Rfam assigns this 86-nucleotide RNA from Galemys pyrenaicus to the family "Small nucleolar RNA SNORD86". Pairs were carried over by alignment from the consensus structure, which was predicted with RNAalifold. Rfam 15.1 lists 274 matches to the family in 139 species. It scores 63 bits against the family's covariance model. Lineage of the source: Eukaryota > Eumetazoa > Craniata > Theria > Galemys. Rfam's curators write: U86 belongs to the C/D family of snoRNAs.
[Rfam]
Nucleotides: 086
Stems, first nucleotide, its partner, number of pairs: 003084003011076002019073008027063002030060001032058004040052001041050003
Number, partner (000 for none) and nucleotide at each position: 001000c002000u003084u004083c005082a006000c007000a008000a009000c010000a011076a012075u013000g014000g015000c016000u017000g018000a019073c020072c021071a022070g023069g024068g025067c026066u027063u028062c029000c030060u031000g032058a033057a034056c035055u036000a037000u038000a039000c040052a041050g042049g043048c044000u045000u046000c047000u048043g049042c050041u051000a052040u053000a054000c055035a056034g057033u058032u059000g060030a061000u062028g063027g064000u065000c066026a067025g068024u069023c070022c071021u072020g073019g074000c075012a076011u077000c078000u079000g080000a081000a082005u083004g084003a085000u086000u